[Rfam]
RNA sequence: ACGGGAACAGCACAGCCGCAAAUCUGACUCGUCGGGUGCUCGCGGGCGUCGCCCGCUCGCGACCGAGGUCGUUCGACCUCGCCUUUUUCCCGACUCGGGAUUGCGGACGUGC
Numbered sequence: 001a002c003g004g005g006a007a008c009a010g011c012a013c014a015g016c017c018g019c020a021a022a023u024c025u026g027a028c029u030c031g032u033c034g035g036g037u038g039c040u041c042g043c044g045g046g047c048g049u050c051g052c053c054c055g056c057u058c059g060c061g062a063c064c065g066a067g068g069u070c071g072u073u074c075g076a077c078c079u080c081g082c083c084u085u086u087u088u089c090c091c092g093a094c095u096c097g098g099g100a101u102u103g104c105g106g107a108c109g110u111g112c
Stems, first nucleotide, its partner, number of pairs: 010112004016106006024099002031094006

Background
The record is a 112-nucleotide sequence from Halorussus gelatinilyticus, which matches "S15-Halobacteria ribosomal protein leader" in Rfam. For this family Rfam cites "Discovery of 20 novel ribosomal leader candidates in bacteria and archaea" (Eckert and Weinberg, BMC Microbiol, 2020).